This 94-nucleotide RNA from Sporormia fimetaria belongs to the Rfam family "A. fumigatus snoRNA Afu_263".
The family's RNA type in Rfam is C/D-box small nucleolar RNA.
The base pairs follow the family's consensus structure.
A reference for the family is Jochl et al. (2008), "Small ncRNA transcriptome analysis from Aspergillus fumigatus suggests a novel mechanism for regulation of protein synthesis", Nucleic Acids Res.
The family is grouped with related families in Rfam's "SNORD77 clan".
[Rfam]
RNA sequence: UUCCAUGAUGAUACCCCAACACAAAAGCAUAGUUCAACUGAUGGCUUCGGUCGCUGAAGAACAAAAUACCAUCAUCUUUCGCCCCUAUCUGAUU
Numbered sequence: 001u002u003c004c005a006u007g008a009u010g011a012u013a014c015c016c017c018a019a020c021a022c023a024a025a026a027g028c029a030u031a032g033u034u035c036a037a038c039u040g041a042u043g044g045c046u047u048c049g050g051u052c053g054c055u056g057a058a059g060a061a062c063a064a065a066a067u068a069c070c071a072u073c074a075u076c077u078u079u080c081g082c083c084c085c086u087a088u089c090u091g092a093u094u
Base pairs, nucleotide, nucleotide: 006021007020009018010017033058034057035056036055043052044051045050